[Rfam]
RNA sequence: GGAGUCGGCCAGGCGGCCGCGGCGGCCCGCUUGUCGGGUCGCCGAGGAAAGUCCGGACUCCAGAGGGCAGGACGCUGGGUAACACCCAGGCGCGGGCAACCGCGCGGGACAAGCCAACAGAGAGCAGACCGCCGAACGGCGCCCUCCGGGCGCGCGUGGCAAGGGUGAAAGGGUGCGGUAAGAGCGCACCGGCGCCGCUGGAGACAGCGGCGGCCAGGGAGCCCCGUCCGGAGCAAGGCCAAGCAGGCGCGAUACGAGGUGGCCCGCCCAGCGCCAGGUAGGCCGCACCGAGCCGGGACGGCAACGUCCCGGCCCAGAGAGAUGGCCGCCACCCGUCACCGCACGGGCACAGAAUCCGGCUUAUCGGCCGGCUCCCUCC
Numbered sequence: 001g002g003a004g005u006c007g008g009c010c011a012g013g014c015g016g017c018c019g020c021g022g023c024g025g026c027c028c029g030c031u032u033g034u035c036g037g038g039u040c041g042c043c044g045a046g047g048a049a050a051g052u053c054c055g056g057a058c059u060c061c062a063g064a065g066g067g068c069a070g071g072a073c074g075c076u077g078g079g080u081a082a083c084a085c086c087c088a089g090g091c092g093c094g095g096g097c098a099a100c101c102g103c104g105c106g107g108g109a110c111a112a113g114c115c116a117a118c119a120g121a122g123a124g125c126a127g128a129c130c131g132c133c134g135a136a137c138g139g140c141g142c143c144c145u146c147c148g149g150g151c152g153c154g155c156g157u158g159g160c161a162a163g164g165g166u167g168a169a170a171g172g173g174u175g176c177g178g179u180a181a182g183a184g185c186g187c188a189c190c191g192g193c194g195c196c197g198c199u200g201g202a203g204a205c206a207g208c209g210g211c212g213g214c215c216a217g218g219g220a221g222c223c224c225c226g227u228c229c230g231g232a233g234c235a236a237g238g239c240c241a242a243g244c245a246g247g248c249g250c251g252a253u254a255c256g257a258g259g260u261g262g263c264c265c266g267c268c269c270a271g272c273g274c275c276a277g278g279u280a281g282g283c284c285g286c287a288c289c290g291a292g293c294c295g296g297g298a299c300g301g302c303a304a305c306g307u308c309c310c311g312g313c314c315c316a317g318a319g320a321g322a323u324g325g326c327c328g329c330c331a332c333c334c335g336u337c338a339c340c341g342c343a344c345g346g347g348c349a350c351a352g353a354a355u356c357c358g359g360c361u362u363a364u365c366g367g368c369c370g371g372c373u374c375c376c377u378c379c
Stems, first nucleotide, its partner, number of pairs: 001375010011364001012330007020044009049362003053359005058233004065265004070229005075089005091104004107224002113222001114219002129164002131160003137154002172190006192214001193212008237284004246275005258268003292313004297308004

This 379-nucleotide RNA sequence from Egibacter rhizosphaerae belongs to the Rfam family "Bacterial RNase P class A". Its family is annotated with ribonuclease P activity, dimeric ribonuclease P complex and tRNA processing in the Gene Ontology. Lineage of the source: Bacteria > Bacillati > Nitriliruptoria > Egibacteraceae > Egibacter. Ribonuclease P (RNase P) is a ubiquitous endoribonuclease, found in archaea, bacteria and eukarya as well as chloroplasts and mitochondria.